[Rfam]
RNA sequence: GAGUUCUUGUCGGGGUGCCUCGAAUCGGAGGCUGAGAUCGGAUAGUUCCGGAUCCCGUUGAACCUGAUCAGGUUAAGGCCUGCGUAGGGAACAAGAUGUGCCUCCCC
Numbered sequence: 001g002a003g004u005u006c007u008u009g010u011c012g013g014g015g016u017g018c019c020u021c022g023a024a025u026c027g028g029a030g031g032c033u034g035a036g037a038u039c040g041g042a043u044a045g046u047u048c049c050g051g052a053u054c055c056c057g058u059u060g061a062a063c064c065u066g067a068u069c070a071g072g073u074u075a076a077g078g079c080c081u082g083c084g085u086a087g088g089g090a091a092c093a094a095g096a097u098g099u100g101c102c103u104c105c106c107c
Base pairs, nucleotide, nucleotide: 006095007094008093009092010091011057012056013055014054016051017032018031019030020029021028039050040049041048042047063088064087065086066085069082070081071080072079